[Rfam]
RNA sequence: UUAUAAGAAAAUAUUCUUUUUUCAGAUUCAUUGAAUAGCCGAUGUAUUUGGUCUAUAUUAAAGACCAGAUAUAUUAGUUACUCAAUGAAUCUGAAAAGGGAAUAUUUGCUUAUAA
Numbered sequence: 001u002u003a004u005a006a007g008a009a010a011a012u013a014u015u016c017u018u019u020u021u022u023c024a025g026a027u028u029c030a031u032u033g034a035a036u037a038g039c040c041g042a043u044g045u046a047u048u049u050g051g052u053c054u055a056u057a058u059u060a061a062a063g064a065c066c067a068g069a070u071a072u073a074u075u076a077g078u079u080a081c082u083c084a085a086u087g088a089a090u091c092u093g094a095a096a097a098g099g100g101a102a103u104a105u106u107u108g109c110u111u112a113u114a115a
Stems, first nucleotide, its partner, number of pairs: 002114006009107005015101011027089008036080004041075004049067004
The record is a 115-nucleotide RNA sequence from Trifolium subterraneum, which matches "MIR2593 microRNA precursor family" in Rfam.
Its family is annotated with miRNA-mediated post-transcriptional gene silencing and RISC complex in the Gene Ontology.
Pairs were carried over by alignment from the consensus structure, which was predicted with RNAalifold.